[Rfam]
Nucleotides: 117
Stems, first nucleotide, its partner, number of pairs: 003056005022044002025040004073105007
Number, partner (000 for none) and nucleotide at each position: 001000a002000c003056c004055c005054u006053c007052c008000g009000g010000u011000u012000c013000c014000c015000u016000u017000u018000c019000c020000c021000a022044u023043c024000g025040g026039a027038u028037c029000u030000g031000a032000a033000c034000a035000c036000c037028g038027a039026u040025c041000u042000u043023g044022g045000a046000u047000g048000u049000a050000a051000a052007g053006g054005a055004g056003g057000a058000a059000a060000a061000g062000u063000a064000a065000u066000a067000g068000u069000g070000a071000a072000g073105c074104u075103g076102g077101c078100c079099u080000c081000a082000c083000a084000g085000g086000g087000c088000u089000u090000a091000u092000a093000g094000u095000u096000u097000g098000u099079g100078g101077g102076c103075u104074a105073g106000u107000u108000u109000c110000a111000a112000a113000c114000a115000a116000g117000g
Shown here is a 117-nucleotide RNA from Myotis davidii, a member of the family "Small nucleolar RNA SNORA61". By type it is an H/ACA-box small nucleolar RNA. ACA61 is a member of the H/ACA class of snoRNA that guide the sites of modification of uridines to pseudouridines. The family has 25 seed sequences and 881 matches in Rfam 15.1.